[Rfam]
RNA sequence: CGGGUCUGUUCUGCCGGUUUAGCAGCCGGUCACCGGGCUUGAGAACAGUGCUGCAACAACCGCGAUGCGAGCGUCACAAAGCGCUUGUUCCGCCGGGAUUUUCCCGGUGAAGUCGCGGUGGUCGUGGUUCCACAGGGAUCGCGCAAUGAAAAGGAGUUCGUUAUUUAUCCUGCUCAUUGUACUGGGCGCGGCGUUUGGGGUUGAUAAAGGCGGUUGGUCGGUCAACGGCAACAGCCUGACGCUGAACGUAAUAGUCCAGAACAAGUAAGCUACUGGCCGCUCUCUGAGCGGCCUUUU
Numbered sequence: 001c002g003g004g005u006c007u008g009u010u011c012u013g014c015c016g017g018u019u020u021a022g023c024a025g026c027c028g029g030u031c032a033c034c035g036g037g038c039u040u041g042a043g044a045a046c047a048g049u050g051c052u053g054c055a056a057c058a059a060c061c062g063c064g065a066u067g068c069g070a071g072c073g074u075c076a077c078a079a080a081g082c083g084c085u086u087g088u089u090c091c092g093c094c095g096g097g098a099u100u101u102u103c104c105c106g107g108u109g110a111a112g113u114c115g116c117g118g119u120g121g122u123c124g125u126g127g128u129u130c131c132a133c134a135g136g137g138a139u140c141g142c143g144c145a146a147u148g149a150a151a152a153g154g155a156g157u158u159c160g161u162u163a164u165u166u167a168u169c170c171u172g173c174u175c176a177u178u179g180u181a182c183u184g185g186g187c188g189c190g191g192c193g194u195u196u197g198g199g200g201u202u203g204a205u206a207a208a209g210g211c212g213g214u215u216g217g218u219c220g221g222u223c224a225a226c227g228g229c230a231a232c233a234g235c236c237u238g239a240c241g242c243u244g245a246a247c248g249u250a251a252u253a254g255u256c257c258a259g260a261a262c263a264a265g266u267a268a269g270c271u272a273c274u275g276g277c278c279g280c281u282c283u284c285u286g287a288g289c290g291g292c293c294u295u296u297u
Base pairs, nucleotide, nucleotide: 007047008046009045010044011043012042014029015028016027017026030037031036060186061185068087069086070085071084072083073082074081090121091120092119093118094117095116097114099112100111101110102109124142125141126140127139128138129137130136143180144179145178146177147176148175149174154171156169158167160165188266189265193262194261195260213226214225215224216223272297275293276292277291278290279289280288281287282286
A member of the RNA family "ryfA RNA" from Serratia rubidaea, 297 nucleotides long. Rfam classes the family as a small RNA. For this family Rfam cites "Identification of novel small RNAs using comparative genomics and microarrays" (Wassarman et al., Genes Dev, 2001). It scores 89 bits against the family's covariance model. The organism belongs to Serratia, within Bacteria. About the family: This family consists of a number of bacterial RNA genes of 305 bases in length. The ryfA RNA gene is present in E. coli, Shigella flexneri and Salmonella species where it is found between the ydaN and dbpA genes.